[Rfam]
RNA sequence: CUCUGUGCCCGCAUGAGGCCCAGGGCGGAAAGAG
Dot-bracket structure: (((((.(((.......))).))))).........

The family of this 34-nucleotide RNA sequence from Paenibacillus antibioticophila is "L31-Firmicutes ribosomal protein leader".
The family is grouped with related families in Rfam's "Ribosomal Protein L31 Leader clan".
The base pairs follow the family's consensus structure, which is taken from published work.